[Rfam]
Nucleotides: 116
Base pairs, nucleotide, nucleotide: 003077004076005075006074008067009066011064012063013062014061015060016059017058018057027053028052029051030050031049032048033047034046097115098114099113100112101111102110
Number, partner (000 for none) and nucleotide at each position: 001000a002000g003077c004076c005075a006074u007000g008067c009066a010000u011064u012063g013062a014061g015060c016059a017058c018057a019000g020000a021000g022000c023000g024000a025000a026000c027053u028052a029051u030050u031049c032048u033047u034046u035000c036000g037000c038000c039000u040000u041000u042000u043000a044000c045000u046034a047033a048032a049031g050030a051029a052028u053027a054000c055000c056000g057018u058017g059016u060015g061014c062013u063012c064011g065000c066009u067008g068000c069000a070000u071000u072000a073000a074006g075005u076004g077003g078000c079000a080000u081000a082000c083000g084000u085000c086000u087000a088000u089000u090000u091000u092000u093000g094000g095000a096000g097115a098114g099113g100112u101111u102110c103000c104000u105000a106000c107000u108000a109000g110102g111101a112100g113099c114098u115097u116000c

Shown here is a 116-nucleotide RNA sequence from Beta vulgaris, a member of the family "U5 spliceosomal RNA". From the family's description: U5 RNA is a component of both types of known spliceosome. Gene Ontology terms of the family: spliceosomal tri-snRNP complex assembly and U5 snRNP. NCBI's taxonomy places the organism under Eukaryota, Streptophyta, Gunneridae, Betoideae, Beta vulgaris.